Bacterial small subunit ribosomal RNA: a 575-nucleotide part of an RNA from Cohnella herbarum.
RNA sequence: AUUAUGGAGAGUUUGAUCCUGGCUCAGGACGAACGCUGGCGGCGUGCCUAAUACAUGCAAGUCGAACGGAUCUAGAAGUUAGCUUGCUAACUUCUAGGUUAGUGGCGGACGGGUGAGUAACACGUAGGCAACCUGCCCGCAAGAUCGGGAUAACAUUCGGAAACGAAUGCUAAGACCGGAUAAACAAGUUUGCCGCAUGGUGAGCUUGGGAAACACGGAGCAAUCUGUGGCUUGCGGAUGGGCCUGCGGCGCAUUAGCUAGUUGGUGGGGUAAUGGCUCACCAAGGCGACGAUGCGUAGCCGACCUGAGAGGGUGAACGGCCACACUGGGACUGAGACACGGCCCAGACUCCUACGGGAGGCAGCAGUAGGGAAUCUUCCACAAUGGGCGAAAGCCUGAUGGAGCAACGCCGCGUGAGUGAGGAAGGCUUUCGGGUCGUAAAGCUCUGUUGCCAGGGAAGAAUAAGAGCCAGUUAACUGCUGGUUCGAUGACGGUACCUGAGAAGAAAGCCCCGGCUAACUACGUGCCAGCAGCCGCGGUAAUACGUAGGGGGCAAGCGUUGUCCGGAAUUAUUG
Numbered sequence: 001a002u003u004a005u006g007g008a009g010a011g012u013u014u015g016a017u018c019c020u021g022g023c024u025c026a027g028g029a030c031g032a033a034c035g036c037u038g039g040c041g042g043c044g045u046g047c048c049u050a051a052u053a054c055a056u057g058c059a060a061g062u063c064g065a066a067c068g069g070a071u072c073u074a075g076a077a078g079u080u081a082g083c084u085u086g087c088u089a090a091c092u093u094c095u096a097g098g099u100u101a102g103u104g105g106c107g108g109a110c111g112g113g114u115g116a117g118u119a120a121c122a123c124g125u126a127g128g129c130a131a132c133c134u135g136c137c138c139g140c141a142a143g144a145u146c147g148g149g150a151u152a153a154c155a156u157u158c159g160g161a162a163a164c165g166a167a168u169g170c171u172a173a174g175a176c177c178g179g180a181u182a183a184a185c186a187a188g189u190u191u192g193c194c195g196c197a198u199g200g201u202g203a204g205c206u207u208g209g210g211a212a213a214c215a216c217g218g219a220g221c222a223a224u225c226u227g228u229g230g231c232u233u234g235c236g237g238a239u240g241g242g243c244c245u246g247c248g249g250c251g252c253a254u255u256a257g258c259u260a261g262u263u264g265g266u267g268g269g270g271u272a273a274u275g276g277c278u279c280a281c282c283a284a285g286g287c288g289a290c291g292a293u294g295c296g297u298a299g300c301c302g303a304c305c306u307g308a309g310a311g312g313g314u315g316a317a318c319g320g321c322c323a324c325a326c327u328g329g330g331a332c333u334g335a336g337a338c339a340c341g342g343c344c345c346a347g348a349c350u351c352c353u354a355c356g357g358g359a360g361g362c363a364g365c366a367g368u369a370g371g372g373a374a375u376c377u378u379c380c381a382c383a384a385u386g387g388g389c390g391a392a393a394g395c396c397u398g399a400u401g402g403a404g405c406a407a408c409g410c411c412g413c414g415u416g417a418g419u420g421a422g423g424a425a426g427g428c429u430u431u432c433g434g435g436u437c438g439u440a441a442a443g444c445u446c447u448g449u450u451g452c453c454a455g456g457g458a459a460g461a462a463u464a465a466g467a468g469c470c471a472g473u474u475a476a477c478u479g480c481u482g483g484u485u486c487g488a489u490g491a492c493g494g495u496a497c498c499u500g501a502g503a504a505g506a507a508a509g510c511c512c513c514g515g516c517u518a519a520c521u522a523c524g525u526g527c528c529a530g531c532a533g534c535c536g537c538g539g540u541a542a543u544a545c546g547u548a549g550g551g552g553g554c555a556a557g558c559g560u561u562g563u564c565c566g567g568a569a570u571u572a573u574u575g
Stems, first nucleotide, its partner, number of pairs: 009025005027565004032561006039413006045406002047371001052369003056366003061106003066103002069100002076093007113324003123248007132241002137237007145179004154169006185208010214229005250296003257287003262284008299321004303314004326347005349360004377403001379402003385398005416446004426437004450506001453500004460492001466486006509554005520549005530537002
Dot-bracket structure: ........(((((.......))))).((((.((((((.(((((((((....(((.(((..(((..((.((.....(((((((....))))))).....)).)))))......(((.......(((((((..((...(((((((.((((.....((((((....))))))......)))).....((((((((((....)))))))))).....(((((......))))).)))))))..))))))))).(((....(((..((((((((.......)))))))))))......)))..((((((((....))))...))))))).(((((............))))).((((....))))...)))))).).....(.(((...(((((....))))).)))).)).))))))..((((......((((....)))).....))))...(..((((...(.....((((((.........)))))).....)....)))).....)..(((((......(((((.....((....)).......)))))))))).))))))))))..........

A search with the family's covariance model found it, with a score of 1611 bits.